[Rfam]
Nucleotides: 085
Base pairs, nucleotide, nucleotide: 012037013036017032019030020029021028022027040079041078042077043076045075046074047073048070049069050068055064056063057062
Number, partner (000 for none) and nucleotide at each position: 001000c002000u003000c004000a005000g006000a007000a008000a009000a010000g011000g012037g013036c014000a015000a016000a017032c018000u019030u020029a021028c022027u023000g024000a025000a026000a027022a028021g029020u030019a031000u032017g033000g034000a035000c036013g037012c038000a039000a040079a041078a042077u043076c044000a045075c046074a047073g048070g049069u050068c051000u052000a053000a054000a055064g056063c057062u058000a059000a060000u061000u062057a063056g064055c065000u066000a067000c068050g069049g070048c071000g072000g073047c074046u075045g076043g077042g078041u079040u080000a081000c082000c083000c084000a085000g
This 85-nucleotide sequence from Virgibacillus necropolis belongs to the Rfam family "c-di-GMP-I riboswitch aptamer". The base pairs follow the family's consensus structure, which is taken from published work. Its family is annotated with cyclic-di-GMP binding in the Gene Ontology.